[Rfam]
RNA sequence: UCCGAUAAAGGCAAACCCGAAGAAAUUCGGGGACGCAAAGCCACGGGUCCGGAUCAAUGGACAGCCGAGCUGCCGAAG
Numbered sequence: 001u002c003c004g005a006u007a008a009a010g011g012c013a014a015a016c017c018c019g020a021a022g023a024a025a026u027u028c029g030g031g032g033a034c035g036c037a038a039a040g041c042c043a044c045g046g047g048u049c050c051g052g053a054u055c056a057a058u059g060g061a062c063a064g065c066c067g068a069g070c071u072g073c074c075g076a077a078g
Stems, first nucleotide, its partner, number of pairs: 001078001003075002011036002016031006034064001039071003044067003047062003

Rfam assigns this 78-nucleotide RNA sequence from Desulfuromonas soudanensis to the family "c-di-GMP-I-GGC riboswitch aptamer".
A search with the family's covariance model found it, with a score of 76 bits.
The family's consensus secondary structure is taken from published work.